[Rfam]
RNA sequence: GUUCACUGAGGGCAAACCUAUUGAAAGAUAGGGACGCAAAGCCUCCGGCCUAAAGCGCAUGAUGUAAUAAGCGCAACGGUAGCGGGGUUGCCAAA
Numbered sequence: 001g002u003u004c005a006c007u008g009a010g011g012g013c014a015a016a017c018c019u020a021u022u023g024a025a026a027g028a029u030a031g032g033g034a035c036g037c038a039a040a041g042c043c044u045c046c047g048g049c050c051u052a053a054a055g056c057g058c059a060u061g062a063u064g065u066a067a068u069a070a071g072c073g074c075a076a077c078g079g080u081a082g083c084g085g086g087g088u089u090g091c092c093a094a095a
Stems, first nucleotide, its partner, number of pairs: 012037002017032006040089004045085003048080003055074004

c-di-GMP-I riboswitch aptamer: a 95-nucleotide RNA sequence from Sapientia aquatica. NCBI's taxonomy places the organism under Bacteria, Pseudomonadati, Betaproteobacteria, Oxalobacteraceae, Sapientia. The base pairs follow the family's consensus structure, which is taken from published work.